Rfam assigns this 50-nucleotide RNA from Solanum tuberosum to the family "MIR1886 microRNA precursor family".
[Rfam]
RNA sequence: GAGAUGAGAUCAAUGUUUGGACAUGUGAUUUCAUAUUGAUUUCAUCUCAU
Numbered sequence: 001g002a003g004a005u006g007a008g009a010u011c012a013a014u015g016u017u018u019g020g021a022c023a024u025g026u027g028a029u030u031u032c033a034u035a036u037u038g039a040u041u042u043c044a045u046c047u048c049a050u
Base pairs, nucleotide, nucleotide: 001048002047003046004045005044006043007042008041009040010039011038012037013036014035015034016033017028018027019026
The source organism's lineage runs through Eukaryota, Spermatophyta, Mesangiospermae, Solanaceae and Solanum.